[Rfam]
RNA sequence: GGUUGAGCAAGCAGAAUAUGCUUGUAUUCAAGAGAUUUAUAUGUCUUCUGGGGUGGGGAGUC
Numbered sequence: 001g002g003u004u005g006a007g008c009a010a011g012c013a014g015a016a017u018a019u020g021c022u023u024g025u026a027u028u029c030a031a032g033a034g035a036u037u038u039a040u041a042u043g044u045c046u047u048c049u050g051g052g053g054u055g056g057g058g059a060g061u062c
Base pairs, nucleotide, nucleotide: 003031004030005029007025008024009023010022011021012020013019043062045060046059047058048057049056